[Rfam]
RNA sequence: CGUCCCCUGCGGUGUUCGCCAAGGCCAUACAUUCCUUGAACCAAUGCUGAUUGGCAUCGGUUGCGGACCAAGACCCCGCUGUUGUGCGCGCCCUUCGUCGGGUGUGCCUGAUGCGGAAGGAAAGCAGCCACUCUGAACCCAGGUUCAGGAUGCCGGCCGAACGGCACAGGCGGGGGCCAA
Numbered sequence: 001c002g003u004c005c006c007c008u009g010c011g012g013u014g015u016u017c018g019c020c021a022a023g024g025c026c027a028u029a030c031a032u033u034c035c036u037u038g039a040a041c042c043a044a045u046g047c048u049g050a051u052u053g054g055c056a057u058c059g060g061u062u063g064c065g066g067a068c069c070a071a072g073a074c075c076c077c078g079c080u081g082u083u084g085u086g087c088g089c090g091c092c093c094u095u096c097g098u099c100g101g102g103u104g105u106g107c108c109u110g111a112u113g114c115g116g117a118a119g120g121a122a123a124g125c126a127g128c129c130a131c132u133c134u135g136a137a138c139c140c141a142g143g144u145u146c147a148g149g150a151u152g153c154c155g156g157c158c159g160a161a162c163g164g165c166a167c168a169g170g171c172g173g174g175g176g177c178c179a180a
Stems, first nucleotide, its partner, number of pairs: 002178001004176007012167004017163002033150003037147006059129003063125002068120001076116004086107002089104005
RNA: 6S / SsrS RNA